[Rfam]
RNA sequence: UAUGAACGAAUGAUGAUUUAUUCCAAAAUUCUUAUUAAAGGAAGGAAUAAAUCUGAACUGUUCAUA
Numbered sequence: 001u002a003u004g005a006a007c008g009a010a011u012g013a014u015g016a017u018u019u020a021u022u023c024c025a026a027a028a029u030u031c032u033u034a035u036u037a038a039a040g041g042a043a044g045g046a047a048u049a050a051a052u053c054u055g056a057a058c059u060g061u062u063c064a065u066a
Base pairs, nucleotide, nucleotide: 002065003064004063005062006061007060008059015053016052018050019049020048021047022046023045024044029042030041031040
This 66-nucleotide RNA sequence from Plasmodium yoelii belongs to the Rfam family "Selenocysteine insertion sequence 5". A search with the family's covariance model found it, with a score of 66 bits. By type it is a cis-regulatory element. A reference for the family is Mourier et al. (2005), "A selenocysteine tRNA and SECIS element in Plasmodium falciparum", RNA.